[Rfam]
RNA sequence: GUUACCGCGAGGUGGUGUCUGAAGGAAGCGUGGAGCAAAACCGGGACCUGACGAACAGAAACCGGAUAUCAGGCAUCCUUGGCCGGACGAGCGGGCAACGUGUCGCGAAGUCCAUAUCCAAUCAACGGCCAGGGCUGUAGAUCCGGCAGGUGCGCGGGGAAGGCGAUUGAA
Numbered sequence: 001g002u003u004a005c006c007g008c009g010a011g012g013u014g015g016u017g018u019c020u021g022a023a024g025g026a027a028g029c030g031u032g033g034a035g036c037a038a039a040a041c042c043g044g045g046a047c048c049u050g051a052c053g054a055a056c057a058g059a060a061a062c063c064g065g066a067u068a069u070c071a072g073g074c075a076u077c078c079u080u081g082g083c084c085g086g087a088c089g090a091g092c093g094g095g096c097a098a099c100g101u102g103u104c105g106c107g108a109a110g111u112c113c114a115u116a117u118c119c120a121a122u123c124a125a126c127g128g129c130c131a132g133g134g135c136u137g138u139a140g141a142u143c144c145g146g147c148a149g150g151u152g153c154g155c156g157g158g159g160a161a162g163g164c165g166a167u168u169g170a171a
Stems, first nucleotide, its partner, number of pairs: 001016006032167001035164002041157003045153001046151005062146006073138003077134007085113004091106004
Record summary:
A member of the RNA family "Group II catalytic intron D1-D4-3" from Mesorhizobium sp. LSHC420B00, 171 nucleotides long. Rfam links the family to the GO term Group II intron splicing. A search with the family's covariance model found it, with a score of 131 bits. The literature on the family includes a 2001 paper in Trends Genet by Bonen and Vogel, "The ins and outs of group II introns".